[Rfam]
RNA sequence: CGGAAGAGAAAGGCAACCGCUUCCUGUAUCUCUAGUAGAUAUGGUAAGAGGAAAGUCUGGACUUCAUAAGAAGAGAUACUGGAGAAACUCCAGGGGCCGUAAGGCUACGGAAAGUGCAACAGAAAACACUCCGCUAUAAUAUAGACAGGCUGAAAAUUCCUACUUUAAGAGUAGGAGCUAUUAAGGUGACUUAAUAGACGUGCAAACCCUAUCUGAAGCAAGAGAAAAAGUUUUUGUUUCUGCAUAAUGAGGAGCUCUGUUCCUCAUAAACUUUUUCACAAUCGCUUGAGGGAUAUAGUAAUAUAUCCCCUAGAUGAAUGGUUGCCCUCAAGAUGGUCUUUGCCAUCUUGUAGACAGAAUCCGGCUUACUCUCUCUUCCGAUAU
Numbered sequence: 001c002g003g004a005a006g007a008g009a010a011a012g013g014c015a016a017c018c019g020c021u022u023c024c025u026g027u028a029u030c031u032c033u034a035g036u037a038g039a040u041a042u043g044g045u046a047a048g049a050g051g052a053a054a055g056u057c058u059g060g061a062c063u064u065c066a067u068a069a070g071a072a073g074a075g076a077u078a079c080u081g082g083a084g085a086a087a088c089u090c091c092a093g094g095g096g097c098c099g100u101a102a103g104g105c106u107a108c109g110g111a112a113a114g115u116g117c118a119a120c121a122g123a124a125a126a127c128a129c130u131c132c133g134c135u136a137u138a139a140u141a142u143a144g145a146c147a148g149g150c151u152g153a154a155a156a157u158u159c160c161u162a163c164u165u166u167a168a169g170a171g172u173a174g175g176a177g178c179u180a181u182u183a184a185g186g187u188g189a190c191u192u193a194a195u196a197g198a199c200g201u202g203c204a205a206a207c208c209c210u211a212u213c214u215g216a217a218g219c220a221a222g223a224g225a226a227a228a229a230g231u232u233u234u235u236g237u238u239u240c241u242g243c244a245u246a247a248u249g250a251g252g253a254g255c256u257c258u259g260u261u262c263c264u265c266a267u268a269a270a271c272u273u274u275u276u277c278a279c280a281a282u283c284g285c286u287u288g289a290g291g292g293a294u295a296u297a298g299u300a301a302u303a304u305a306u307c308c309c310c311u312a313g314a315u316g317a318a319u320g321g322u323u324g325c326c327c328u329c330a331a332g333a334u335g336g337u338c339u340u341u342g343c344c345a346u347c348u349u350g351u352a353g354a355c356a357g358a359a360u361c362c363g364g365c366u367u368a369c370u371c372u373c374u375c376u377u378c379c380g381a382u383a384u
Base pairs, nucleotide, nucleotide: 001380002379003378004377005376006375007374008373009372012326013325014324015323016322017321018320020048021047022046024044025043026042027041028040029039030038053367054366055365057364058363059362060361061360062218063217064216065215070258072256074214075213076212077211078210079093080092081091082090083089094108095106096105097104098103109209110208114207115206116203117202118201131149132148134144135143136142137141158176159175160174161173162172163171177199178197179196180195181194182193183192184191185190222283223282225276226275227274228273229272230271250264251263252262253261254260290309291308292307293306294305295304296303297302
The record is a 384-nucleotide sequence from Chlamydia felis, which matches "Bacterial RNase P class A" in Rfam. Its family is annotated with tRNA processing, dimeric ribonuclease P complex and ribonuclease P activity in the Gene Ontology.